[Rfam]
RNA sequence: CUCGACUCACACGACUGGCGCGGGUGGGUCCACCACCGGGGAGUGAAAGUCGGGGCAUCGACCGCCUGGGUGCCCUCA
Numbered sequence: 001c002u003c004g005a006c007u008c009a010c011a012c013g014a015c016u017g018g019c020g021c022g023g024g025u026g027g028g029u030c031c032a033c034c035a036c037c038g039g040g041g042a043g044u045g046a047a048a049g050u051c052g053g054g055g056c057a058u059c060g061a062c063c064g065c066c067u068g069g070g071u072g073c074c075c076u077c078a
Stems, first nucleotide, its partner, number of pairs: 003052005010045003015040002017066004024036004055073005
RNA: ZMP/ZTP riboswitch aptamer (pfl RNA motif)